[Rfam]
A member of the RNA family "Small nucleolar RNA SNORA5" from Ciconia maguari, 138 nucleotides long. Pairs were carried over by alignment from the consensus structure, which was predicted with RNAfold. Gene Ontology terms of the family: nucleolus and RNA processing. It is annotated as an H/ACA-box small nucleolar RNA. ACA5 is a member of the H/ACA class of snoRNA that guide the sites of modification of uridines to pseudouridines. Taxonomically the source falls in Ciconia (Eukaryota, Teleostomi, Aequornithes, Ciconiidae). A search with the family's covariance model found it, with a score of 64 bits. The family is grouped with related families in Rfam's "SNORA5 clan".
RNA sequence: UGUGGCCCCGUCAAACUCAGUCCCUGCCUCCCCCGUGGUGGGGACUGGCCAGCCGGCUGCCAAAGCAACUUCUGUAGCCCAUGGGCCCCGCAGCCCCUCCUGUGGGACCCCGGGGAUAAAAUCAUGCCACUGGGCUCC
Numbered sequence: 001u002g003u004g005g006c007c008c009c010g011u012c013a014a015a016c017u018c019a020g021u022c023c024c025u026g027c028c029u030c031c032c033c034c035g036u037g038g039u040g041g042g043g044a045c046u047g048g049c050c051a052g053c054c055g056g057c058u059g060c061c062a063a064a065g066c067a068a069c070u071u072c073u074g075u076a077g078c079c080c081a082u083g084g085g086c087c088c089c090g091c092a093g094c095c096c097c098u099c100c101u102g103u104g105g106g107a108c109c110c111c112g113g114g115g116a117u118a119a120a121a122u123c124a125u126g127c128c129a130c131u132g133g134g135c136u137c138c
Stems, first nucleotide, its partner, number of pairs: 002060004018047011074130002077127002086115005